Rfam assigns this 176-nucleotide sequence from Novilysobacter concretionis to the family "FMN riboswitch aptamer (RFN element)".
Pairs were carried over by alignment from the consensus structure, which is taken from published work.
Taxonomically the source falls in Novilysobacter concretionis (Bacteria, Pseudomonadati, Lysobacterales, Novilysobacter).

RNA sequence: UAACGUCUUCAGGGCGGGGUGCAACUCCCCACCGGCGGUAGGUUUCGGUGGCAACCAGCCAGCGCGACAAGCCCGCGAGCGCCUCCGGCGGCAUGCUUCGGCGUGGCCGUGGAGGGUCAGCAGAUCCGGUCCGAUGCCGGAGCCGACGGUCAUAGUCCGGAUGAAAGAAGACGGCG
Dot-bracket structure: ...(((((((......(((.......))).[[((((((................................[[))))..((.......................................))...(((((.......)))))]])).(((.....]]))).......)))))))...